This 114-nucleotide sequence from Alkaliphilus sp. B6464 belongs to the Rfam family "TPP riboswitch aptamer (THI element)". The organism belongs to Alkaliphilus, within Bacteria. The base pairs follow the family's consensus structure, which is taken from published work.
RNA sequence: AUUAAACACUGGGAGAGCUGGAAAGGCCAGCUGAGAGAAAGACCCUAUAAUGUCUUUGAUCCCUAAGAACCUGAUCUGGAUAAUACCAGCGUAGGAAAGUGUAUUUGUAUUAGG
Numbered sequence: 001a002u003u004a005a006a007c008a009c010u011g012g013g014a015g016a017g018c019u020g021g022a023a024a025g026g027c028c029a030g031c032u033g034a035g036a037g038a039a040a041g042a043c044c045c046u047a048u049a050a051u052g053u054c055u056u057u058g059a060u061c062c063c064u065a066a067g068a069a070c071c072u073g074a075u076c077u078g079g080a081u082a083a084u085a086c087c088a089g090c091g092u093a094g095g096a097a098a099g100u101g102u103a104u105u106u107g108u109a110u111u112a113g114g
Stems, first nucleotide, its partner, number of pairs: 006102005011064003017031005038057005070095004076089004